[Rfam]
Rfam assigns this 221-nucleotide sequence from Virgibacillus oceani to the family "T-box leader". From the family's description: Uncharged tRNA acts as the effector for transcription antitermination of genes in the T-box leader family.

RNA sequence: GAACGUACGAUGACGGAGACAGUAAAAAAGCAAGGUGUCUGUUAAGCGAGUCAGGGCAUGGUGGAAGCCUGAUGCAGAAAUGCUUUUAGAAUAUCACUCCCGAGUAUCCAUUCGAACAGGCAGCUUAGUAGAAAUGGACGGUUCAUUCACGUUACGAAUUUCGAGUGAAUUUAAUUAUUUAAAUUUAUUAGGGUGGUACCGCGAGUCUUCUCGUCCCUUUC
Numbered sequence: 001g002a003a004c005g006u007a008c009g010a011u012g013a014c015g016g017a018g019a020c021a022g023u024a025a026a027a028a029a030g031c032a033a034g035g036u037g038u039c040u041g042u043u044a045a046g047c048g049a050g051u052c053a054g055g056g057c058a059u060g061g062u063g064g065a066a067g068c069c070u071g072a073u074g075c076a077g078a079a080a081u082g083c084u085u086u087u088a089g090a091a092u093a094u095c096a097c098u099c100c101c102g103a104g105u106a107u108c109c110a111u112u113c114g115a116a117c118a119g120g121c122a123g124c125u126u127a128g129u130a131g132a133a134a135u136g137g138a139c140g141g142u143u144c145a146u147u148c149a150c151g152u153u154a155c156g157a158a159u160u161u162c163g164a165g166u167g168a169a170u171u172u173a174a175u176u177a178u179u180u181a182a183a184u185u186u187a188u189u190a191g192g193g194u195g196g197u198a199c200c201g202c203g204a205g206u207c208u209u210c211u212c213g214u215c216c217c218u219u220u221c
Stems, first nucleotide, its partner, number of pairs: 007105002015100004026087005039077003050073006108137004112132002139151002168185007190218004201214005
Taxonomically the source falls in Virgibacillus (Bacteria, Bacillati, Caryophanales, Bacillaceae). The match comes from Rfam's covariance-model search (123 bits). Gene Ontology term of the family: tRNA binding. Rfam classes the family as a cis-regulatory leader.